[Rfam]
RNA sequence: CGCGUUUUUCGCCCAGGCGGAGCUCGACCGCCGUUUGAAGAGCUGAAGCGCUACAUCGACAGUCAUCGCAAUGUGUACGGGGUCGAGCCGAUCUGCAAGGUCUUGCAGAUUGCCCCG
Number, nucleotide and partner (000 for none) at each position: 001c000002g000003c000004g000005u000006u000007u000008u000009u000010c000011g000012c000013c000014c000015a000016g032017g031018c030019g029020g028021a000022g000023c000024u000025c000026g000027a000028c020029c019030g018031c017032c016033g000034u000035u000036u000037g000038a000039a000040g000041a000042g000043c000044u000045g000046a000047a000048g000049c000050g000051c000052u000053a000054c000055a000056u000057c000058g000059a000060c000061a000062g000063u000064c000065a000066u000067c000068g000069c000070a000071a000072u000073g000074u000075g000076u000077a000078c117079g116080g115081g114082g113083u000084c000085g000086a000087g000088c000089c112090g111091a000092u109093c108094u107095g106096c105097a104098a103099g000100g000101u000102c000103u098104u097105g096106c095107a094108g093109a092110u000111u090112g089113c082114c081115c080116c079117g078
Rfam assigns this 117-nucleotide sequence from Rhodoferax sp. OV413 to the family "ALIL pseudoknot". A search with the family's covariance model found it, with a score of 115 bits. By type it is a cis-regulatory element.